[Rfam]
RNA sequence: UCCAAAUGUUUUGGGGCUACAUUAAGAGCAUUCUCAUUGCAGCCCCUUUCAGAUUUUAAUCUGCGAAUCCUACU
Number, nucleotide and partner (000 for none) at each position: 001u000002c000003c000004a000005a000006a000007u000008g000009u000010u000011u000012u000013g046014g045015g044016g043017c042018u041019a000020c000021a074022u000023u072024a071025a000026g069027a068028g040029c039030a038031u000032u000033c000034u000035c000036a000037u000038u030039g029040c028041a018042g017043c016044c015045c014046c013047u000048u000049u000050c063051a062052g061053a060054u059055u000056u000057u000058a000059a054060u053061c052062u051063g050064c000065g000066a000067a000068u027069c026070c000071u024072a023073c000074u021
Description:
Shown here is a 74-nucleotide RNA sequence from Polypterus senegalus, a member of the family "Mammalian CPEB3 ribozyme". A search with the family's covariance model found it, with a score of 55 bits. The family's consensus secondary structure is taken from published work. The literature on the family includes a 2006 paper in Science by Salehi-Ashtiani et al., "A genomewide search for ribozymes reveals an HDV-like sequence in the human CPEB3 gene".